This 159-nucleotide sequence from Anaerotignum lactatifermentans belongs to the Rfam family "glmS glucosamine-6-phosphate activated ribozyme aptamer". This entry contains a glucosamine-6-phosphate activated ribozyme that is found in the mRNA for GlmS. GlmS is an enzyme that uses fructose-6-phosphate and glutamine to generate glucosamine-6-phosphate. The ribozyme catalyses self cleavage of the glmS mRNA that is thought to regulate GlmS activity.
[Rfam]
RNA sequence: UGGCAGUAUGAAGCGCCAGAGCCGCAGUGCAGAUGCGGUUGACGAGGUGGAAGUGAUCGAAGUUUUCGGCGGAUGCUUCCCGCCCUUUCGCACAGGGACGCAGGUCUUUUACAAAACUUUUGAGAAAUCGAAGGGACAAAAGAAAGAUAACGUGCGAAU
Numbered sequence: 001u002g003g004c005a006g007u008a009u010g011a012a013g014c015g016c017c018a019g020a021g022c023c024g025c026a027g028u029g030c031a032g033a034u035g036c037g038g039u040u041g042a043c044g045a046g047g048u049g050g051a052a053g054u055g056a057u058c059g060a061a062g063u064u065u066u067c068g069g070c071g072g073a074u075g076c077u078u079c080c081c082g083c084c085c086u087u088u089c090g091c092a093c094a095g096g097g098a099c100g101c102a103g104g105u106c107u108u109u110u111a112c113a114a115a116a117c118u119u120u121u122g123a124g125a126a127a128u129c130g131a132a133g134g135g136a137c138a139a140a141a142g143a144a145a146g147a148u149a150a151c152g153u154g155c156g157a158a159u
Stems, first nucleotide, its partner, number of pairs: 020040007049080005057069004081100002084097003104148006117134007